A member of the RNA family "Bacterial RNase P class A" from Ahniella affigens, 351 nucleotides long.
Rfam classes the family as a ribozyme.
Its family is annotated with ribonuclease P activity, tRNA processing and dimeric ribonuclease P complex in the Gene Ontology.
[Rfam]
RNA sequence: GGAGUCAGCCAGACCAUCGCGGUGCGCGAGCAUCGAGGAAAGUCCGGACUUCAUAGGGCAGAAUGCCAGGUAACGCCUGGGCGGUGCGAGCCGACGGACAGUGCAACAGAGAACAGACAGCCGAACGGCGCGCAAGCGUGCGUGGUGAUGGUGAAACGGUGCGGUAAGAGCGCACCGCUUGCGGGGCUAACGCCGCAAGGCACGGCAAACCCCAUUCGAAGCAAGAUCAAAUAGGGGAACGAUACGGCGGCCCGUCGUGUUCCCGGGUAGAUCGCUUGAGGCGGCCAGCGAUGGUUGUCCCAGACGAAUGAUGGUUCUCGACAGAAUCCGGCUUAUCGGCUGGCUACGCAC
Numbered sequence: 001g002g003a004g005u006c007a008g009c010c011a012g013a014c015c016a017u018c019g020c021g022g023u024g025c026g027c028g029a030g031c032a033u034c035g036a037g038g039a040a041a042g043u044c045c046g047g048a049c050u051u052c053a054u055a056g057g058g059c060a061g062a063a064u065g066c067c068a069g070g071u072a073a074c075g076c077c078u079g080g081g082c083g084g085u086g087c088g089a090g091c092c093g094a095c096g097g098a099c100a101g102u103g104c105a106a107c108a109g110a111g112a113a114c115a116g117a118c119a120g121c122c123g124a125a126c127g128g129c130g131c132g133c134a135a136g137c138g139u140g141c142g143u144g145g146u147g148a149u150g151g152u153g154a155a156a157c158g159g160u161g162c163g164g165u166a167a168g169a170g171c172g173c174a175c176c177g178c179u180u181g182c183g184g185g186g187c188u189a190a191c192g193c194c195g196c197a198a199g200g201c202a203c204g205g206c207a208a209a210c211c212c213c214a215u216u217c218g219a220a221g222c223a224a225g226a227u228c229a230a231a232u233a234g235g236g237g238a239a240c241g242a243u244a245c246g247g248c249g250g251c252c253c254g255u256c257g258u259g260u261u262c263c264c265g266g267g268u269a270g271a272u273c274g275c276u277u278g279a280g281g282c283g284g285c286c287a288g289c290g291a292u293g294g295u296u297g298u299c300c301c302a303g304a305c306g307a308a309u310g311a312u313g314g315u316u317c318u319c320g321a322c323a324g325a326a327u328c329c330g331g332c333u334u335a336u337c338g339g340c341u342g343g344c345u346a347c348g349c350a351c
Base pairs, nucleotide, nucleotide: 001347003345004344005343006342007341008340009339010338011336012316013315014314015313016312017311018310020035021034022033023032024031025030040334041333042332044331045330046329047328048327049221050220051219052218056253057252058251059250061217062216063215064214065213066080067079068078069077070076081095082093083092084091085090096212097211101210102209103206104205118150119149120146121145122144128143129142130141131140132139133138158176159175160174161173162172163171177201178199179198180197181196182195183193185191225273226272227271228270235264236263237262238261239260240259244258245257246256247255248254280299281298282297283296284295285294286293287292
The base pairs follow the family's consensus structure, which is taken from published work.